RNA sequence: GAUUUUUCGUCAGGAGAGAGUUCCCUGCGGGGGAACCGCCGAAGGCGCAGGGGCAGCUGCUUCCGAACGCUCAGGCAAAAGGACUGGCAAACGCCU
Numbered sequence: 001g002a003u004u005u006u007u008c009g010u011c012a013g014g015a016g017a018g019a020g021u022u023c024c025c026u027g028c029g030g031g032g033g034a035a036c037c038g039c040c041g042a043a044g045g046c047g048c049a050g051g052g053g054c055a056g057c058u059g060c061u062u063c064c065g066a067a068c069g070c071u072c073a074g075g076c077a078a079a080a081g082g083a084c085u086g087g088c089a090a091a092c093g094c095c096u
Stems, first nucleotide, its partner, number of pairs: 006091002009088005020036004038076003041072002045070003051064002
A member of the RNA family "Glycine riboswitch aptamer" from Caldimonas thermodepolymerans, 96 nucleotides long. NCBI's taxonomy places the organism under Bacteria, Pseudomonadati, Betaproteobacteria, Sphaerotilaceae, Caldimonas. Rfam's curators write: This family represents the bacterial glycine riboswitch. Gene Ontology term of the family: glycine biosynthetic process. The base pairs follow the family's consensus structure.